[Rfam]
RNA sequence: GGGCGCAGUCGCGACUGGCGAAGGUGGGUCACCACCGGGGAGCGGCGCACGAGGCACACCGACUGACGGGUCGUCCGCCUGGGCCCUGGUC
Numbered sequence: 001g002g003g004c005g006c007a008g009u010c011g012c013g014a015c016u017g018g019c020g021a022a023g024g025u026g027g028g029u030c031a032c033c034a035c036c037g038g039g040g041a042g043c044g045g046c047g048c049a050c051g052a053g054g055c056a057c058a059c060c061g062a063c064u065g066a067c068g069g070g071u072c073g074u075c076c077g078c079c080u081g082g083g084c085c086c087u088g089g090u091c
Stems, first nucleotide, its partner, number of pairs: 003048003009045004015039002017079004024035004068086005
Dot-bracket structure: ..(((...((((..(([[[[...((((....))))..))..)))))))...................(((((...]]]]..))))).....

Overview
A member of the RNA family "ZMP/ZTP riboswitch aptamer (pfl RNA motif)" from Kineococcus xinjiangensis, 91 nucleotides long. A search with the family's covariance model found it, with a score of 50 bits. A reference for the family is Jones and Ferre-D'Amare (2015), "Recognition of the bacterial alarmone ZMP through long-distance association of two RNA subdomains", Nat Struct Mol Biol.